Rfam assigns this 87-nucleotide RNA sequence from Solanum commersonii to the family "MIR8024 microRNA precursor family". Rfam 15.1 lists 661 matches to the family in 8 species. Its family is annotated with miRNA-mediated post-transcriptional gene silencing and RISC complex in the Gene Ontology. NCBI's taxonomy places the organism under Eukaryota, Euphyllophyta, Pentapetalae, Solanales, Solanum. It scores 71 bits against the family's covariance model.
[Rfam]
RNA sequence: UUAAUGAAUUUGAAGACUUAAACUUGCAUAUUUGGAGGAUUUAUAGACUUAAACUUGCAGACUUGGGGGGUUUUGAAGACUUCAACU
Numbered sequence: 001u002u003a004a005u006g007a008a009u010u011u012g013a014a015g016a017c018u019u020a021a022a023c024u025u026g027c028a029u030a031u032u033u034g035g036a037g038g039a040u041u042u043a044u045a046g047a048c049u050u051a052a053a054c055u056u057g058c059a060g061a062c063u064u065g066g067g068g069g070g071u072u073u074u075g076a077a078g079a080c081u082u083c084a085a086c087u
Stems, first nucleotide, its partner, number of pairs: 001085002004082001006080001009077006017068003021064001025059004032053002035050003